[Rfam]
RNA sequence: ACCUCCUGUUUCUGCCCCGUAUUUUGCUUCGGCGAUAAAAUGCGAUAGGUUCUGGUGAUGGAGAAGAUAAAGCCUGUUGACAAUCUCUGUCUAUUUGAUACUUUGACGGACGUGUUGAUGAUGGGAUCGUUCUGUGGAUUGGCCAACAGCUGUCUUUUGUAUGUAUAAUGUCAUACAAGAGGUGCUGGUCCCAGAUACAUUU
Numbered sequence: 001a002c003c004u005c006c007u008g009u010u011u012c013u014g015c016c017c018c019g020u021a022u023u024u025u026g027c028u029u030c031g032g033c034g035a036u037a038a039a040a041u042g043c044g045a046u047a048g049g050u051u052c053u054g055g056u057g058a059u060g061g062a063g064a065a066g067a068u069a070a071a072g073c074c075u076g077u078u079g080a081c082a083a084u085c086u087c088u089g090u091c092u093a094u095u096u097g098a099u100a101c102u103u104u105g106a107c108g109g110a111c112g113u114g115u116u117g118a119u120g121a122u123g124g125g126a127u128c129g130u131u132c133u134g135u136g137g138a139u140u141g142g143c144c145a146a147c148a149g150c151u152g153u154c155u156u157u158u159g160u161a162u163g164u165a166u167a168a169u170g171u172c173a174u175a176c177a178a179g180a181g182g183u184g185c186u187g188g189u190c191c192c193a194g195a196u197a198c199a200u201u202u
Stems, first nucleotide, its partner, number of pairs: 003063004016049002019046001020042006073125007081117002083113002086110005131195004136191005150182002153180003158175001161174003

A member of the RNA family "Small nucleolar RNA snR43" from Pichia californica, 202 nucleotides long. Rfam classes the family as an H/ACA-box small nucleolar RNA. The family's consensus secondary structure is taken from published work. A reference for the family is Balakin et al. (1996), "The RNA world of the nucleolus: two major families of small RNAs defined by different box elements with related functions", Cell. Rfam links the family to the GO terms nucleolus and RNA processing.